[Rfam]
RNA sequence: GUGCAGACCUUUCCAGCGAGGCUUAGCCAGCAGUGGCUCUGUUCUUUCCUGUUGUGUCUGCUAGAGAGAUGUGAGGCUGUUUGAGGCCCUGCUGUGACUCUACGUGGCGGGGUUAUAGGUAAACCUCCAACAUUG
Numbered sequence: 001g002u003g004c005a006g007a008c009c010u011u012u013c014c015a016g017c018g019a020g021g022c023u024u025a026g027c028c029a030g031c032a033g034u035g036g037c038u039c040u041g042u043u044c045u046u047u048c049c050u051g052u053u054g055u056g057u058c059u060g061c062u063a064g065a066g067a068g069a070u071g072u073g074a075g076g077c078u079g080u081u082u083g084a085g086g087c088c089c090u091g092c093u094g095u096g097a098c099u100c101u102a103c104g105u106g107g108c109g110g111g112g113u114u115a116u117a118g119g120u121a122a123a124c125c126u127c128c129a130a131c132a133u134u135g
Stems, first nucleotide, its partner, number of pairs: 003061006019045003025038004073127004087112006094105003
RNA: Small nucleolar RNA SNORA9
Organism: Perca fluviatilis